RNA sequence: UUUUUGUCGAAUAAUUAGACUUCCAAAAUUGGAAAAAAAUGCGUAUUAUACGCCCCUUACUAAGAGCAAUUGCUCCUUGAGUAUAGAAAGAGAAGUACGGUUUAUGCCGUACUUUUUAUUUGGAAAUCACUCUUGUUAAAUUUGUUCUAAAAAUAAUCAAAGGAUGA
Numbered sequence: 001u002u003u004u005u006g007u008c009g010a011a012u013a014a015u016u017a018g019a020c021u022u023c024c025a026a027a028a029u030u031g032g033a034a035a036a037a038a039a040u041g042c043g044u045a046u047u048a049u050a051c052g053c054c055c056c057u058u059a060c061u062a063a064g065a066g067c068a069a070u071u072g073c074u075c076c077u078u079g080a081g082u083a084u085a086g087a088a089a090g091a092g093a094a095g096u097a098c099g100g101u102u103u104a105u106g107c108c109g110u111a112c113u114u115u116u117u118a119u120u121u122g123g124a125a126a127u128c129a130c131u132c133u134u135g136u137u138a139a140a141u142u143u144g145u146u147c148u149a150a151a152a153a154u155a156a157u158c159a160a161a162g163g164a165u166g167a
Stems, first nucleotide, its partner, number of pairs: 002129001005126001007124002010121002026084001028082002030079003041053005064075004089117003093114009135157004141151004
The family of this 167-nucleotide sequence from Actinobacillus indolicus is "Actinobacillus sRNA 11". The source organism's lineage runs through Bacteria, Pseudomonadati, Pasteurellales, Pasteurellaceae and Actinobacillus. The literature on the family includes a 2016 paper in RNA by Rossi et al., "A computational strategy for the search of regulatory small RNAs in Actinobacillus pleuropneumoniae". By type it is a small RNA. Pairs were carried over by alignment from the consensus structure, which was predicted with RNAfold.